[Rfam]
RNA sequence: CGAGUUGGCCGGGCGACCGCGUCGGUGCCGCGAGGUGCCGCCGAGGAACGUCCGGGCUCCACAGGGCAGGGUGGUUGUUAACGGCAACCCGGGGCGACCCGCGGGACAGUGCCACAGAGAACAGACCGCCGUCCCUGCCUGGCGGGGGCGGUAAGGGUGAAACGGUGGGGUAAGAGCCCACCAGCACCCCGGGCGACCGGGGUGGCUAGGUAAACCCCACCCGGAGCAAGGCCAAGAGGACCGCAAGGUCUGCGCAGGCGAUCGAGGGCUGCCCGCCCGAGUCUGCGGGUAGGCCGCUGGAGCCUGUCGGCAACGGCAGGCCGAGAUGGAUGGUCGCCAGCCCACGGGAGUGGGCGACAGAACCCGGCGUACAGGCCAACUCGUCCG
Numbered sequence: 001c002g003a004g005u006u007g008g009c010c011g012g013g014c015g016a017c018c019g020c021g022u023c024g025g026u027g028c029c030g031c032g033a034g035g036u037g038c039c040g041c042c043g044a045g046g047a048a049c050g051u052c053c054g055g056g057c058u059c060c061a062c063a064g065g066g067c068a069g070g071g072u073g074g075u076u077g078u079u080a081a082c083g084g085c086a087a088c089c090c091g092g093g094g095c096g097a098c099c100c101g102c103g104g105g106a107c108a109g110u111g112c113c114a115c116a117g118a119g120a121a122c123a124g125a126c127c128g129c130c131g132u133c134c135c136u137g138c139c140u141g142g143c144g145g146g147g148g149c150g151g152u153a154a155g156g157g158u159g160a161a162a163c164g165g166u167g168g169g170g171u172a173a174g175a176g177c178c179c180a181c182c183a184g185c186a187c188c189c190c191g192g193g194c195g196a197c198c199g200g201g202g203u204g205g206c207u208a209g210g211u212a213a214a215c216c217c218c219a220c221c222c223g224g225a226g227c228a229a230g231g232c233c234a235a236g237a238g239g240a241c242c243g244c245a246a247g248g249u250c251u252g253c254g255c256a257g258g259c260g261a262u263c264g265a266g267g268g269c270u271g272c273c274c275g276c277c278c279g280a281g282u283c284u285g286c287g288g289g290u291a292g293g294c295c296g297c298u299g300g301a302g303c304c305u306g307u308c309g310g311c312a313a314c315g316g317c318a319g320g321c322c323g324a325g326a327u328g329g330a331u332g333g334u335c336g337c338c339a340g341c342c343c344a345c346g347g348g349a350g351u352g353g354g355c356g357a358c359a360g361a362a363c364c365c366g367g368c369g370u371a372c373a374g375g376c377c378a379a380c381u382c383g384u385c386c387g
Stems, first nucleotide, its partner, number of pairs: 001383010011372001012338007020043002023040006048370003052367005057226004064274004069222005074088005089103001090101004104217002109215002111211003126156002128152009164182006184206001185204008230295004254286006266278004302321008
Rfam assigns this 387-nucleotide sequence from Virgisporangium ochraceum to the family "Bacterial RNase P class A". The source organism's lineage runs through Bacteria, Bacillati, Actinomycetota, Micromonosporales and Virgisporangium.